[Rfam]
RNA sequence: UACAUGAAGCGAAAAAACACAGUCUGGUUGGUAGUCCAGGCGCAUGAGCUUUUGCAAGAUAGCUAUGUCAGUAACCUUCCCCCCUCGGGAUGUCCAUCGUUUCGUUUUAUGAA
Numbered sequence: 001u002a003c004a005u006g007a008a009g010c011g012a013a014a015a016a017a018c019a020c021a022g023u024c025u026g027g028u029u030g031g032u033a034g035u036c037c038a039g040g041c042g043c044a045u046g047a048g049c050u051u052u053u054g055c056a057a058g059a060u061a062g063c064u065a066u067g068u069c070a071g072u073a074a075c076c077u078u079c080c081c082c083c084c085u086c087g088g089g090a091u092g093u094c095c096a097u098c099g100u101u102u103c104g105u106u107u108u109a110u111g112a113a
Stems, first nucleotide, its partner, number of pairs: 004105008022041006042068005078090004
RNA: azaaromatic riboswitch aptamer (yjdF RNA)